[Rfam]
The family of this 127-nucleotide RNA from Acerihabitans arboris is "RtT RNA". The literature on the family includes a 1991 paper in Nucleic Acids Res by Bosl and Kersten, "A novel RNA product of the tyrT operon of Escherichia coli". Its family is annotated with cellular response to amino acid starvation in the Gene Ontology. Pairs were carried over by alignment from the consensus structure, which is taken from published work. About the family: This family represents a bacterial cis-regulatory element known as RtT RNA. The exact function of RtT is unknown although it is thought that it may be involved in changing the cellular response in relation to amino acid starvation.
RNA sequence: AUAUUGCACGCGUCGUGCGGAUUUGAACCUGCGCAGGUUCGAGUCGAGCGCAGCGAGACAGCGUUGCCGGAACGGCAACGACCCGAAGGGCGAGGCCACAGGCCGAGUCAUCCUGCACGACCCACCA
Numbered sequence: 001a002u003a004u005u006g007c008a009c010g011c012g013u014c015g016u017g018c019g020g021a022u023u024u025g026a027a028c029c030u031g032c033g034c035a036g037g038u039u040c041g042a043g044u045c046g047a048g049c050g051c052a053g054c055g056a057g058a059c060a061g062c063g064u065u066g067c068c069g070g071a072a073c074g075g076c077a078a079c080g081a082c083c084c085g086a087a088g089g090g091c092g093a094g095g096c097c098a099c100a101g102g103c104c105g106a107g108u109c110a111u112c113c114u115g116c117a118c119g120a121c122c123c124a125c126c127a
Base pairs, nucleotide, nucleotide: 015118016117017116018115019114020113022110032092033091038087039086040085041084045055046054062080063079064078065077066076067075